[Rfam]
RNA sequence: AACAUGCUUCCUUAGAUCCACCUUUGUGGAUGGAUCUUGAAUUGAGUUCUGCUUGUAAACUUCUUGUUUCUUGUAGUUCCAGUUCAAGAAACAUCCAGCAACUUUGUUGGUUGUACAGUCAAAGGUGCUUGAGUCAUUGGCAUGUGAGAUCAAUAUACCUGCAUGGUAGUCGCAGGUUCGGACGGAAAUGACUGCAUUAUGCUGUCAUGUGUUACCGUCAGGACUCGACUGGUGUGCGGACACU
Numbered sequence: 001a002a003c004a005u006g007c008u009u010c011c012u013u014a015g016a017u018c019c020a021c022c023u024u025u026g027u028g029g030a031u032g033g034a035u036c037u038u039g040a041a042u043u044g045a046g047u048u049c050u051g052c053u054u055g056u057a058a059a060c061u062u063c064u065u066g067u068u069u070c071u072u073g074u075a076g077u078u079c080c081a082g083u084u085c086a087a088g089a090a091a092c093a094u095c096c097a098g099c100a101a102c103u104u105u106g107u108u109g110g111u112u113g114u115a116c117a118g119u120c121a122a123a124g125g126u127g128c129u130u131g132a133g134u135c136a137u138u139g140g141c142a143u144g145u146g147a148g149a150u151c152a153a154u155a156u157a158c159c160u161g162c163a164u165g166g167u168a169g170u171c172g173c174a175g176g177u178u179c180g181g182a183c184g185g186a187a188a189u190g191a192c193u194g195c196a197u198u199a200u201g202c203u204g205u206c207a208u209g210u211g212u213u214a215c216c217g218u219c220a221g222g223a224c225u226c227g228a229c230u231g232g233u234g235u236g237c238g239g240a241c242a243c244u
Stems, first nucleotide, its partner, number of pairs: 002145007011133005019127008027097006035089004041083004046079001049076004055070001057069004098114006159239005168230004178222002181219005189214003194205003
The record is a 244-nucleotide RNA sequence from Microtus ochrogaster, which matches "Small nucleolar RNA SNORA53" in Rfam. Pairs were carried over by alignment from the consensus structure, which was predicted with RNAalifold. Rfam's curators write: The snoRNA ACA53 belongs to the H/ACA family of pseudouridylation guide snoRNAs. The source organism's lineage runs through Eukaryota, Eumetazoa, Euteleostomi, Tetrapoda and Microtus.